[Rfam]
Description
Small nucleolar RNA ACA64: a 130-nucleotide sequence from Oryzias latipes. Rfam's curators put it in the seed alignment.
RNA sequence: UCAGCCUGAAAAUGUUCUCCGGUUUGACCGUAACCUGAGGUCAGAUAUCUGAGCCCACAGCACGGCGGCCCAUUAAGCUUAUCGUCUGCUCCUGUGUAGGCAGGCCGAUAAAACCCAUGGGCCUACAAAG
Number, nucleotide and partner (000 for none) at each position: 001u000002c000003a000004g000005c000006c051007u000008g049009a048010a046011a000012a000013u043014g042015u000016u040017c000018u000019c000020c000021g035022g034023u033024u032025u000026g000027a000028c000029c000030g000031u000032a024033a023034c022035c021036u000037g000038a000039g000040g016041u000042c014043a013044g000045a000046u010047a000048u009049c008050u000051g006052a000053g000054c000055c000056c000057a000058c000059a000060g000061c000062a000063c000064g000065g000066c000067g123068g000069c121070c120071c119072a118073u117074u000075a000076a000077g000078c000079u111080u110081a109082u108083c107084g000085u000086c000087u102088g101089c100090u000091c000092c000093u000094g000095u000096g000097u000098a000099g000100g089101c088102a087103g000104g000105c000106c000107g083108a082109u081110a080111a079112a000113a000114c000115c000116c000117a073118u072119g071120g070121g069122c000123c067124u000125a000126c000127a000128a000129a000130g000